A member of the RNA family "RpsF leader" from Vibrio eleionomae, 83 nucleotides long. About the family: Conserved and widely distributed to many bacterial species RNA structure. Pairs were carried over by alignment from the consensus structure.
[Rfam]
RNA sequence: GGUCAACUAUCAUUCGUUCCUUGCUUCCUUUGGAUGACCGGGCCAAAUUGGGAAGCUGAAUAAUCCGUAAGGAGCAAUAAAUG
Numbered sequence: 001g002g003u004c005a006a007c008u009a010u011c012a013u014u015c016g017u018u019c020c021u022u023g024c025u026u027c028c029u030u031u032g033g034a035u036g037a038c039c040g041g042g043c044c045a046a047a048u049u050g051g052g053a054a055g056c057u058g059a060a061u062a063a064u065c066c067g068u069a070a071g072g073a074g075c076a077a078u079a080a081a082u083g
Stems, first nucleotide, its partner, number of pairs: 016075007023056006031045003
A search with the family's covariance model found it, with a score of 56 bits.
The organism belongs to Vibrio, within Bacteria.
By type it is a cis-regulatory leader.
Gene Ontology terms of the family: negative regulation of translation and protein binding.
The literature on the family includes a 2014 paper in RNA by Fu et al., "Bacterial RNA motif in the 5' UTR of rpsF interacts with an S6:S18 complex".